RNA sequence: GGAUCAAGUGAUGAGGAAACUGCAACAAUAUGAUGGGGGGUGGUUAUCCCUCCAUGAUUCCUAGUAUUUAAGUCUCUGAUGGUC
Numbered sequence: 001g002g003a004u005c006a007a008g009u010g011a012u013g014a015g016g017a018a019a020c021u022g023c024a025a026c027a028a029u030a031u032g033a034u035g036g037g038g039g040g041u042g043g044u045u046a047u048c049c050c051u052c053c054a055u056g057a058u059u060c061c062u063a064g065u066a067u068u069u070a071a072g073u074c075u076c077u078g079a080u081g082g083u084c
Stems, first nucleotide, its partner, number of pairs: 001084002004082003035053005
RNA: Small nucleolar RNA Z199
Organism: Musa acuminata